[Rfam]
RNA: Early nodulin 40
RNA sequence: AUGGAAGUGCUUUGGCAAGAAGGCCCUCAUGGCUCUUAGAAAAAAGCAUCAAGUUCAUGGAGAGGGAUAUAUUCUGACGACCCUCCUCCUCCAAAAUCCAACAGUUUGUCUGUGCUUCACUCUUUUAGCUCUCUGUUAGCAACUGAAGCAGCAGUAGCAUUAAAAUCUACCAGAGGCUUUUGGCUAAUGCAUGGCAAACCGGCAAGUCACGAAACGGCAAUGGGCUCGGCUAUUGAAUCUU
Numbered sequence: 001a002u003g004g005a006a007g008u009g010c011u012u013u014g015g016c017a018a019g020a021a022g023g024c025c026c027u028c029a030u031g032g033c034u035c036u037u038a039g040a041a042a043a044a045a046g047c048a049u050c051a052a053g054u055u056c057a058u059g060g061a062g063a064g065g066g067a068u069a070u071a072u073u074c075u076g077a078c079g080a081c082c083c084u085c086c087u088c089c090u091c092c093a094a095a096a097u098c099c100a101a102c103a104g105u106u107u108g109u110c111u112g113u114g115c116u117u118c119a120c121u122c123u124u125u126u127a128g129c130u131c132u133c134u135g136u137u138a139g140c141a142a143c144u145g146a147a148g149c150a151g152c153a154g155u156a157g158c159a160u161u162a163a164a165a166u167c168u169a170c171c172a173g174a175g176g177c178u179u180u181u182g183g184c185u186a187a188u189g190c191a192u193g194g195c196a197a198a199c200c201g202g203c204a205a206g207u208c209a210c211g212a213a214a215c216g217g218c219a220a221u222g223g224g225c226u227c228g229g230c231u232a233u234u235g236a237a238u239c240u241u
Base pairs, nucleotide, nucleotide: 059092060091061090104199105198106197107196108195109194122189124187223239224238226236227235